Description: Rfam assigns this 89-nucleotide sequence from Castor canadensis to the family "Small nucleolar SNORD12/SNORD106". It is annotated as a C/D-box small nucleolar RNA. Gene Ontology terms of the family: nucleolus and RNA processing. Pairs were carried over by alignment from the consensus structure, which was predicted with RNAalifold. The match comes from Rfam's covariance-model search (89 bits).
RNA sequence: GCUGGCAUAAGUGAUGACUGAACUUUUUUCCCCGACAGAUCGACCAUGUUGAUCUAAAUUCUAAGCCAGUUACUGUCUGAUGUGCCAGC
Numbered sequence: 001g002c003u004g005g006c007a008u009a010a011g012u013g014a015u016g017a018c019u020g021a022a023c024u025u026u027u028u029u030c031c032c033c034g035a036c037a038g039a040u041c042g043a044c045c046a047u048g049u050u051g052a053u054c055u056a057a058a059u060u061c062u063a064a065g066c067c068a069g070u071u072a073c074u075g076u077c078u079g080a081u082g083u084g085c086c087a088g089c
Stems, first nucleotide, its partner, number of pairs: 001089009
Dot-bracket structure: (((((((((.......................................................................)))))))))